A member of the RNA family "mir-46/mir-47/mir-281 microRNA precursor family" from Drosophila melanogaster, 92 nucleotides long.
It is one of the family's seed sequences.
The literature on the family includes a 2001 paper in Science by Lau et al., "An abundant class of tiny RNAs with probable regulatory roles in Caenorhabditis elegans".
Rfam links the family to the GO terms miRNA-mediated post-transcriptional gene silencing and RISC complex.
Taxonomically the source falls in Sophophora (Eukaryota, Arthropoda, Schizophora, Ephydroidea).
RNA sequence: CGAAUUGUGAAAUGAAGAGAGCUAUCCGUCGACAGUCAAGUUAAGACCGAUUGUAAUACUGUCAUGGAAUUGCUCUCUUUGUAUAACAUUCG
Numbered sequence: 001c002g003a004a005u006u007g008u009g010a011a012a013u014g015a016a017g018a019g020a021g022c023u024a025u026c027c028g029u030c031g032a033c034a035g036u037c038a039a040g041u042u043a044a045g046a047c048c049g050a051u052u053g054u055a056a057u058a059c060u061g062u063c064a065u066g067g068a069a070u071u072g073c074u075c076u077c078u079u080u081g082u083a084u085a086a087c088a089u090u091c092g
Stems, first nucleotide, its partner, number of pairs: 014080005020074003025068004031063003035059002
Dot-bracket structure: .............(((((.(((..((((..(((.((.....................)).))).))))...))).)))))............